[Rfam]
RNA sequence: UUUUUUUUAAACAGGAAAUAUCUUUUGCCAUUUAUCCAGCUGAAGAUUUCCUUGAAGAAAUAAUUUAAAGAUUGAGAAGAAAAA
Numbered sequence: 001u002u003u004u005u006u007u008u009a010a011a012c013a014g015g016a017a018a019u020a021u022c023u024u025u026u027g028c029c030a031u032u033u034a035u036c037c038a039g040c041u042g043a044a045g046a047u048u049u050c051c052u053u054g055a056a057g058a059a060a061u062a063a064u065u066u067a068a069a070g071a072u073u074g075a076g077a078a079g080a081a082a083a084a
Stems, first nucleotide, its partner, number of pairs: 001084007
The record is an 84-nucleotide RNA from Tupaia belangeri, which matches "Small nucleolar RNA SNORD87" in Rfam. The family has 10 seed sequences and 539 matches in Rfam 15.1. By type it is a C/D-box small nucleolar RNA. The literature on the family includes a 2001 paper in EMBO J by Huttenhofer et al., "RNomics: an experimental approach that identifies 201 candidates for novel, small, non-messenger RNAs in mouse". A search with the family's covariance model found it, with a score of 60 bits. Taxonomically the source falls in Tupaia belangeri (Eukaryota, Opisthokonta, Dipnotetrapodomorpha, Theria).